A member of the RNA family "U1 spliceosomal RNA" from Gossypium australe, 160 nucleotides long.
It scores 134 bits against the family's covariance model.
[Rfam]
RNA sequence: AUACUUACCUGGACGGGGUGAAUGAGUGAUCAGGAAGACUCAUAGCCUAGAGCAGUGACCUGCAUUGCACUUGGUAGGGGUGCUGCUUUAAGGUCUCCCAAUAGGGAGAGCCUACGUCAUAAUUUGUGGCAGUGGGGGCUUGCGUUCGCGCAGCCCCCUA
Numbered sequence: 001a002u003a004c005u006u007a008c009c010u011g012g013a014c015g016g017g018g019u020g021a022a023u024g025a026g027u028g029a030u031c032a033g034g035a036a037g038a039c040u041c042a043u044a045g046c047c048u049a050g051a052g053c054a055g056u057g058a059c060c061u062g063c064a065u066u067g068c069a070c071u072u073g074g075u076a077g078g079g080g081u082g083c084u085g086c087u088u089u090a091a092g093g094u095c096u097c098c099c100a101a102u103a104g105g106g107a108g109a110g111c112c113u114a115c116g117u118c119a120u121a122a123u124u125u126g127u128g129g130c131a132g133u134g135g136g137g138g139c140u141u142g143c144g145u146u147c148g149c150g151c152a153g154c155c156c157c158c159u160a
Stems, first nucleotide, its partner, number of pairs: 012118004016048004021043001023042005049089005055083003059079003062075002091113003094109003097105002134159005141152004